[Rfam]
RNA sequence: CUCUGCUGAGUGAUGGCCUCCUCCGAAACCCCCGUGGGGAGGGGGCCUGAUGGGGUGGAGGG
Numbered sequence: 001c002u003c004u005g006c007u008g009a010g011u012g013a014u015g016g017c018c019u020c021c022u023c024c025g026a027a028a029c030c031c032c033c034g035u036g037g038g039g040a041g042g043g044g045g046c047c048u049g050a051u052g053g054g055g056u057g058g059a060g061g062g
Stems, first nucleotide, its partner, number of pairs: 001062004015047010029036001